[Rfam]
RNA sequence: UUCUAGCAAUGAUGAAAAUAAAAGUCAACAGUUAUCCCUGUCUUAACACUCCGUGUGGACUUUCAUAAUUAGACUCUGAGCUAAAU
Numbered sequence: 001u002u003c004u005a006g007c008a009a010u011g012a013u014g015a016a017a018a019u020a021a022a023a024g025u026c027a028a029c030a031g032u033u034a035u036c037c038c039u040g041u042c043u044u045a046a047c048a049c050u051c052c053g054u055g056u057g058g059a060c061u062u063u064c065a066u067a068a069u070u071a072g073a074c075u076c077u078g079a080g081c082u083a084a085a086u
Base pairs, nucleotide, nucleotide: 002085004083005082006081007080

Record summary
The record is an 86-nucleotide RNA from Erysiphe necator, which matches "Small nucleolar RNA R38" in Rfam. It scores 45 bits against the family's covariance model. A reference for the family is Chen et al. (2003), "The high diversity of snoRNAs in plants: identification and comparative study of 120 snoRNA genes from Oryza sativa", Nucleic Acids Res. About the family: snoR38 is a C/D box small nucleolar RNA conserved across yeast, human, Arabidopsis and rice. Lineage of the source: Eukaryota > Dikarya > leotiomyceta > sordariomyceta > Erysiphe.